[Rfam]
RNA sequence: UACGUAUUAUAAGCGCCAGAGCUUGAACCUGCGCGGGGGAGAAGGAACAGCUAUUAACGCCUAUAUAGGCCAGAGCUGAUCCCGAUCACAGCAAACUCAAGCUGACGAGGUGGAGGUGUUCGAAAUGUUCGGCGGGGACCUCCCGGUGAAGCGCCAGAGCCGUAAACAGAAACGGAAAUCGAACAGGGCAACCGUUCAGACAACGUUUUUGUGGGCGCAACU
Numbered sequence: 001u002a003c004g005u006a007u008u009a010u011a012a013g014c015g016c017c018a019g020a021g022c023u024u025g026a027a028c029c030u031g032c033g034c035g036g037g038g039g040a041g042a043a044g045g046a047a048c049a050g051c052u053a054u055u056a057a058c059g060c061c062u063a064u065a066u067a068g069g070c071c072a073g074a075g076c077u078g079a080u081c082c083c084g085a086u087c088a089c090a091g092c093a094a095a096c097u098c099a100a101g102c103u104g105a106c107g108a109g110g111u112g113g114a115g116g117u118g119u120u121c122g123a124a125a126u127g128u129u130c131g132g133c134g135g136g137g138a139c140c141u142c143c144c145g146g147u148g149a150a151g152c153g154c155c156a157g158a159g160c161c162g163u164a165a166a167c168a169g170a171a172a173c174g175g176a177a178a179u180c181g182a183a184c185a186g187g188g189c190a191a192c193c194g195u196u197c198a199g200a201c202a203a204c205g206u207u208u209u210u211g212u213g214g215g216c217g218c219a220a221c222u
Stems, first nucleotide, its partner, number of pairs: 020103007112143005120132004144162004166212007181197004186193002

Annotation
This 222-nucleotide sequence from Paenibacillus durus belongs to the Rfam family "glmS glucosamine-6-phosphate activated ribozyme aptamer". Rfam classes the family as a riboswitch.